Shown here is a 125-nucleotide sequence from Brassica carinata, a member of the family "MIR9563 microRNA precursor family". The family's consensus secondary structure was predicted with RNAalifold. Taxonomically the source falls in Brassica (Eukaryota, Viridiplantae, Gunneridae, Brassicales). Rfam 15.1 lists 5,832 matches to the family in 9 species.
[Rfam]
RNA sequence: AGAAUAUAAGAAUCUGACUUUUAACUUUUAACUAAAAAAACUAAGAACCGGUUUUUAAAUCUCUUAUUUAAUAGCUGGUUCUUAAUUUUUUUAGUUGAAAGUUAAGAGACGGGUUCUUAUAUUCC
Numbered sequence: 001a002g003a004a005u006a007u008a009a010g011a012a013u014c015u016g017a018c019u020u021u022u023a024a025c026u027u028u029u030a031a032c033u034a035a036a037a038a039a040a041c042u043a044a045g046a047a048c049c050g051g052u053u054u055u056u057a058a059a060u061c062u063c064u065u066a067u068u069u070a071a072u073a074g075c076u077g078g079u080u081c082u083u084a085a086u087u088u089u090u091u092u093a094g095u096u097g098a099a100a101g102u103u104a105a106g107a108g109a110c111g112g113g114u115u116c117u118u119a120u121a122u123u124c125c
Stems, first nucleotide, its partner, number of pairs: 002124015018108022042084006
Dot-bracket structure: .(((((((((((((((.((((((((((((((((((((((..((((((...............................))))))..)))))))))))))))))))))).))))))))))))))).